[Rfam]
RNA sequence: AAAGCAGGUCUGCAAUUGCAGCACUUGUUUUCAGUCAAGUGCUGUCAUUAAACCUGCUGAGAAGAUAUUGCUGCUGCAAGAGUAUUUUCUAUCUUGACUCCUAUAGUGAUGAUGAAGCUCUUGCAGCUGAACAUU
Numbered sequence: 001a002a003a004g005c006a007g008g009u010c011u012g013c014a015a016u017u018g019c020a021g022c023a024c025u026u027g028u029u030u031u032c033a034g035u036c037a038a039g040u041g042c043u044g045u046c047a048u049u050a051a052a053c054c055u056g057c058u059g060a061g062a063a064g065a066u067a068u069u070g071c072u073g074c075u076g077c078a079a080g081a082g083u084a085u086u087u088u089c090u091a092u093c094u095u096g097a098c099u100c101c102u103a104u105a106g107u108g109a110u111g112a113u114g115a116a117g118c119u120c121u122u123g124c125a126g127c128u129g130a131a132c133a134u135u
Stems, first nucleotide, its partner, number of pairs: 003058006019044009069130001071129001073127008090114004095109001097107003
Dot-bracket structure: ..((((((..........(((((((((........)))))))))........))))))..........(.(.((((((((.........((((.(.(((.....))).).)))).....)))))))).)).....
RNA: Small nucleolar RNA SNORA69